5' ureB small RNA: a 292-nucleotide RNA from Neoluteolibacter luteus.
The base pairs follow the family's consensus structure, which was predicted with mfold.
Taxonomically the source falls in Neoluteolibacter (Bacteria, Pseudomonadati, Verrucomicrobiota, Verrucomicrobiia).
On this family, see Wen et al., J Bacteriol 2013: "Helicobacter pylori 5'ureB-sRNA, a cis-encoded antisense small RNA, negatively regulates ureAB expression by transcription termination".
[Rfam]
RNA sequence: CAUGCUCGAUCUGCUGGGGACAGAUGAAAUGGAUGUGGGUAUCGAUCCCCCCGGCGGUAACGAUGCAGCCUUCACCGGCAAUGACCUCGGUGGCCGCGCCGAUGACCAUGUCGAUGCCAUCUUGUAACAAGGGAUUGCCUGCGUGACCGAUGCCGACGAUCCGGCCAUGCUUGAUGCCGAUGUCUGCUUUGAUCACGCCUUGGGCGGCAUCGAGGAUCAGCGCGUUGGUGAUGACCAGGUCGAGGCUCUCGGCAUCGCAAGCCAACGGCGACUGGGCCAUGCCAUCGCGGAU
Numbered sequence: 001c002a003u004g005c006u007c008g009a010u011c012u013g014c015u016g017g018g019g020a021c022a023g024a025u026g027a028a029a030u031g032g033a034u035g036u037g038g039g040u041a042u043c044g045a046u047c048c049c050c051c052c053g054g055c056g057g058u059a060a061c062g063a064u065g066c067a068g069c070c071u072u073c074a075c076c077g078g079c080a081a082u083g084a085c086c087u088c089g090g091u092g093g094c095c096g097c098g099c100c101g102a103u104g105a106c107c108a109u110g111u112c113g114a115u116g117c118c119a120u121c122u123u124g125u126a127a128c129a130a131g132g133g134a135u136u137g138c139c140u141g142c143g144u145g146a147c148c149g150a151u152g153c154c155g156a157c158g159a160u161c162c163g164g165c166c167a168u169g170c171u172u173g174a175u176g177c178c179g180a181u182g183u184c185u186g187c188u189u190u191g192a193u194c195a196c197g198c199c200u201u202g203g204g205c206g207g208c209a210u211c212g213a214g215g216a217u218c219a220g221c222g223c224g225u226u227g228g229u230g231a232u233g234a235c236c237a238g239g240u241c242g243a244g245g246c247u248c249u250c251g252g253c254a255u256c257g258c259a260a261g262c263c264a265a266c267g268g269c270g271a272c273u274g275g276g277c278c279a280u281g282c283c284a285u286c287g288c289g290g291a292u
Base pairs, nucleotide, nucleotide: 002292003291005289007287008286009285012158013157015155016154017153018076019075022072023071030053031052032051035049037048038047039046040045057069058068077148078147081144082143083142090138091137092136093135095133099131101128105125106124108122110120111119165275166274167273171268172267173266175264176263177261185224186223187222189220190219191218200212226257227256228255233250234249238247239246